[Rfam]
RNA sequence: CCGUUUUGUGCUUCAACAGUGAUUGAACCGAAACAG
Number, nucleotide and partner (000 for none) at each position: 001c036002c000003g034004u033005u032006u031007u030008g029009u000010g028011c000012u027013u026014c025015a024016a023017c021018a000019g000020u000021g017022a000023u016024u015025g014026a013027a012028c010029c008030g007031a006032a005033a004034c003035a000036g001
A member of the RNA family "Iron response element I" from Nematostella vectensis, 36 nucleotides long. It is one of the family's seed sequences. A reference for the family is Walden et al. (2006), "Structure of dual function iron regulatory protein 1 complexed with ferritin IRE-RNA", Science. The base pairs follow the family's consensus structure, which is taken from published work. The source organism's lineage runs through Eukaryota, Metazoa, Hexacorallia, Actiniaria and Nematostella.